Rfam assigns this 32-nucleotide RNA sequence to the family "S4-Flavobacteria ribosomal protein leader". The family is grouped with related families in Rfam's "Ribosomal Protein S4 Leader clan". It is annotated as a cis-regulatory leader. It is one of the family's seed sequences.

[Rfam]
RNA sequence: AGUUGUCGAAGGAAAGACCUUAAUUCACAAUU
Numbered sequence: 001a002g003u004u005g006u007c008g009a010a011g012g013a014a015a016g017a018c019c020u021u022a023a024u025u026c027a028c029a030a031u032u
Stems, first nucleotide, its partner, number of pairs: 001032006008026001009021004